The record is a 111-nucleotide RNA sequence, which matches "DUF3800-I RNA" in Rfam. By type it is a small RNA.

RNA sequence: UAUAGGCGCAGGGAGAAAUCCGCUGCGUACCCUGAGAAUCCGAAUGAAAGUUUAAGCGACUUUGUAAAGUCGCCGGUCUCGGGGGCCGCCUAUAAGGCGGUUUUUUUCUUA
Numbered sequence: 001u002a003u004a005g006g007c008g009c010a011g012g013g014a015g016a017a018a019u020c021c022g023c024u025g026c027g028u029a030c031c032c033u034g035a036g037a038a039u040c041c042g043a044a045u046g047a048a049a050g051u052u053u054a055a056g057c058g059a060c061u062u063u064g065u066a067a068a069g070u071c072g073c074c075g076g077u078c079u080c081g082g083g084g085g086c087c088g089c090c091u092a093u094a095a096g097g098c099g100g101u102u103u104u105u106u107u108c109u110u111a
Stems, first nucleotide, its partner, number of pairs: 007027005012021003030084006040076003043052003056073006085101007

From the family's description: Actinobacteria, Firmicutes, Fusobacteria, Proteobacteria (1 example), Tenericutes (2 examples).